[Rfam]
The family of this 89-nucleotide sequence from Modestobacter sp. DSM 44400 is "ZMP/ZTP riboswitch aptamer (pfl RNA motif)".
RNA sequence: CCGUCGGACCGUGACUGGCGCUGCAGGUAGGACACCACCGGGAAGCGGUCCCGUCGUCCCGACGUCCGCCGCGCGCCUGGGCUCCGCCU
Numbered sequence: 001c002c003g004u005c006g007g008a009c010c011g012u013g014a015c016u017g018g019c020g021c022u023g024c025a026g027g028u029a030g031g032a033c034a035c036c037a038c039c040g041g042g043a044a045g046c047g048g049u050c051c052c053g054u055c056g057u058c059c060c061g062a063c064g065u066c067c068g069c070c071g072c073g074c075g076c077c078u079g080g081g082c083u084c085c086g087c088c089u
Base pairs, nucleotide, nucleotide: 003054004053006051007050008049009048010047011046012045015042016041017077018076019075020074021073027038028037030035068082069081070080
The match comes from Rfam's covariance-model search (44 bits). Lineage of the source: Bacteria > Actinomycetota > Actinomycetes > Geodermatophilales > Modestobacter.